This 83-nucleotide RNA from [Limnothrix rosea] IAM M-220 belongs to the Rfam family "Glutamine riboswitch aptamer (glnA leader)".
It scores 43 bits against the family's covariance model.
The literature on the family includes a 2011 paper in RNA Biol by Ames and Breaker, "Bacterial aptamers that selectively bind glutamine".
The source organism's lineage runs through Bacteria, Oscillatoriophycideae, Chroococcales, Geminocystaceae and Picosynechococcus.
[Rfam]
RNA sequence: GACGUUCAUCUCUUAUGGCUCAGUCAUGUAGUUGAUUUGGCAAUAAGGGACGGAAGUAAGGAAAUAUCCCGAAGGAACGCGCC
Numbered sequence: 001g002a003c004g005u006u007c008a009u010c011u012c013u014u015a016u017g018g019c020u021c022a023g024u025c026a027u028g029u030a031g032u033u034g035a036u037u038u039g040g041c042a043a044u045a046a047g048g049g050a051c052g053g054a055a056g057u058a059a060g061g062a063a064a065u066a067u068c069c070c071g072a073a074g075g076a077a078c079g080c081g082c083c
Base pairs, nucleotide, nucleotide: 003079004078005077006076007075009050010049011048012047013046014045015044016043053080060069061068